[Rfam]
RNA: mir-252 microRNA precursor family
RNA sequence: UCUUGUUCCUAAGUACUAGUGCCGCAGGAGUGUUUAUGGAUUCCUCCUGCUGCUUAAGUGCUUAUCAAUGAGU
Numbered sequence: 001u002c003u004u005g006u007u008c009c010u011a012a013g014u015a016c017u018a019g020u021g022c023c024g025c026a027g028g029a030g031u032g033u034u035u036a037u038g039g040a041u042u043c044c045u046c047c048u049g050c051u052g053c054u055u056a057a058g059u060g061c062u063u064a065u066c067a068a069u070g071a072g073u
Base pairs, nucleotide, nucleotide: 002072003071004070005069006068007067010064011063012062013061014060015059016058017057019055024050025049026048027047028046029045030044